[Rfam]
Overview
The family of this 376-nucleotide sequence from Parvularcula mediterranea is "Bacterial RNase P class A". Rfam classes the family as a ribozyme. The organism belongs to Parvularcula, within Bacteria.
Nucleotides: 376
Base pairs, nucleotide, nucleotide: 001372002371003370004369005368006367007366008365009364010363012330013329014328015327016326017325018324020040021039022038023037024036025035026034027033045359046358047357049356050355051354052353053352054217055216056215057214063263064262065261067213068212069211070210071209072086073085074084075083076082087101088099089098090097091096102208103207107206108205109202110201111200123146124145126141127140128139129138130137131136154172155171156170157169158168159167173197174194175193176192177191179188180187181186221286222285223284224283231277232276233275234274235273236272256269258267259266293312294311295310296309298307299306300305
Number, partner (000 for none) and nucleotide at each position: 001372u002371c003370a004369g005368g006367c007366g008365g009364c010363c011000a012330g013329g014328c015327g016326a017325c018324c019000g020040c021039g022038g023037g024036g025035g026034c027033c028000u029000u030000u031000u032000c033027g034026g035025c036024c037023u038022u039021c040020g041000a042000g043000g044000a045359a046358a047357g048000u049356c050355c051354g052353g053352g054217c055216u056215c057214c058000a059000u060000g061000g062000c063263g064262g065261c066000g067213g068212g069211g070210u071209g072086c073085c074084g075083g076082a077000u078000a079000a080000c081000g082076u083075c084074c085073g086072g087101c088099c089098a090097g091096c092000g093000c094000g095000a096091g097090c098089u099088g100000a101087g102208g103207g104000a105000u106000a107206g108205c109202g110201c111200c112000a113000c114000a115000g116000a117000g118000a119000a120000a121000g122000a123146c124145g125000u126141c127140c128139u129138c130137g131136c132000c133000c134000c135000g136131g137130c138129g139128a140127g141126g142000u143000c144000a145124c146123g147000g148000u149000g150000a151000a152000a153000a154172g155171g156170u157169g158168g159167g160000g161000u162000a163000a164000g165000a166000g167159c168158c169157c170156a171155c172154c173197g174194c175193c176192g177191c178000u179188c180187c181186g182000g183000c184000a185000a186181c187180g188179g189000a190000u191177g192176c193175g194174g195000g196000u197173c198000a199000a200111g201110g202109c203000a204000a205108g206107c207103c208102c209071c210070a211069c212068c213067c214057g215056g216055a217054g218000c219000a220000a221286g222285a223284c224283c225000g226000a227000a228000u229000a230000g231277g232276g233275a234274c235273g236272g237000c238000g239000u240000g241000c242000a243000g244000c245000u246000c247000g248000c249000u250000g251000c252000a253000g254000g255000c256269c257000c258267g259266c260000c261065g262064c263063c264000a265000g266259g267258c268000u269256g270000a271000g272236c273235c274234g275233u276232c277231c278000g279000g280000g281000u282000u283224g284223g285222u286221u287000g288000c289000a290000g291000g292000a293312g294311c295310g296309c297000c298307u299306c300305c301000g302000c303000a304000a305300g306299g307298a308000a309296g310295c311294g312293c313000c314000u315000c316000a317000g318000a319000u320000g321000a322000a323000u324018g325017g326016u327015c328014g329013u330012c331000c332000u333000c334000c335000c336000g337000c338000a339000a340000g341000g342000g343000a344000a345000g346000a347000c348000a349000g350000a351000a352053c353052c354051c355050g356049g357047c358046u359045u360000a361000c362000c363010g364009g365008c366007c367006g368005c369004c370003u371002g372001a373000u374000g375000c376000u